This 59-nucleotide sequence from Nocardioides euryhalodurans belongs to the Rfam family "msiK RNA". The family has 120 seed sequences and 1,374 matches in Rfam 15.1.
[Rfam]
Nucleotides: 059
Base pairs, nucleotide, nucleotide: 010051012050013049014048015047016046028045029044030043031042032041033040
Number, partner (000 for none) and nucleotide at each position: 001000g002000a003000c004000g005000c006000c007000c008000g009000u010051c011000a012050c013049u014048u015047c016046a017000c018000g019000a020000c021000g022000g023000a024000u025000c026000g027000u028045c029044c030043g031042g032041c033040a034000c035000g036000u037000a038000c039000c040033u041032g042031c043030c044029g045028g046016u047015g048014a049013a050012g051010g052000a053000g054000c055000g056000a057000g058000u059000u
A search with the family's covariance model found it, with a score of 56 bits. The source organism's lineage runs through Bacteria, Actinomycetes, Propionibacteriales, Nocardioidaceae and Nocardioides. The base pairs follow the family's consensus structure, which is taken from published work.